Annotation
Shown here is a 74-nucleotide RNA from Crocodylus porosus, a member of the family "Mammalian CPEB3 ribozyme". Rfam links the family to the GO term RNA nuclease activity. NCBI's taxonomy places the organism under Eukaryota, Metazoa, Vertebrata, Dipnotetrapodomorpha, Crocodylus.
RNA sequence: AAAUUUCAACUGCCAUAACAAAAGUGUUUGUACCAUGGCCCCUGUCAGAUUCCAACAAAUCUGCAAAUUCUGCU
Numbered sequence: 001a002a003a004u005u006u007c008a009a010c011u012g013c014c015a016u017a018a019c020a021a022a023a024g025u026g027u028u029u030g031u032a033c034c035a036u037g038g039c040c041c042c043u044g045u046c047a048g049a050u051u052c053c054a055a056c057a058a059a060u061c062u063g064c065a066a067a068u069u070c071u072g073c074u
Base pairs, nucleotide, nucleotide: 012039013038014037017074019072020071022069023068024036025035026034046063047062048061049060050059051058